Shown here is a 281-nucleotide RNA sequence from Sciurus vulgaris, a member of the family "Mason-Pfizer monkey virus packaging signal".

RNA sequence: UGGUGCCCAGCGAUGAGGCGUGGAUACGGAGGAAUUCGUGAGGGAAGAGGCGUCUAAUUUUUGGCCGAAGAAAAAAAAGUGAAAGUCAGUUCGACAAAGAUCGCCGCGGGAGCCUGCUGUGCCUUUCUUAAAGGUACAGUAGCGCCUAAGUAUGGGACAAGACUUAAGAAAGCAUAAAGUUUUUGUUAAGCAAUUAAAAGAAGCUUUAAAGAUGUGGGGAGUAAAGGUUAAGAGUAAUGAUCUUUUUAAGUUUUUUGACCUCAUUAAGGACACCUGUCCGC
Numbered sequence: 001u002g003g004u005g006c007c008c009a010g011c012g013a014u015g016a017g018g019c020g021u022g023g024a025u026a027c028g029g030a031g032g033a034a035u036u037c038g039u040g041a042g043g044g045a046a047g048a049g050g051c052g053u054c055u056a057a058u059u060u061u062u063g064g065c066c067g068a069a070g071a072a073a074a075a076a077a078a079g080u081g082a083a084a085g086u087c088a089g090u091u092c093g094a095c096a097a098a099g100a101u102c103g104c105c106g107c108g109g110g111a112g113c114c115u116g117c118u119g120u121g122c123c124u125u126u127c128u129u130a131a132a133g134g135u136a137c138a139g140u141a142g143c144g145c146c147u148a149a150g151u152a153u154g155g156g157a158c159a160a161g162a163c164u165u166a167a168g169a170a171a172g173c174a175u176a177a178a179g180u181u182u183u184u185g186u187u188a189a190g191c192a193a194u195u196a197a198a199a200g201a202a203g204c205u206u207u208a209a210a211g212a213u214g215u216g217g218g219g220a221g222u223a224a225a226g227g228u229u230a231a232g233a234g235u236a237a238u239g240a241u242c243u244u245u246u247u248a249a250g251u252u253u254u255u256u257g258a259c260c261u262c263a264u265u266a267a268g269g270a271c272a273c274c275u276g277u278c279c280g281c
Stems, first nucleotide, its partner, number of pairs: 006032002012027001014026002037047001039045001086134002090131002096126003105121005140160001142158001145156004165208003168204001215257008225243006268279004

Rfam classes the family as a cis-regulatory element.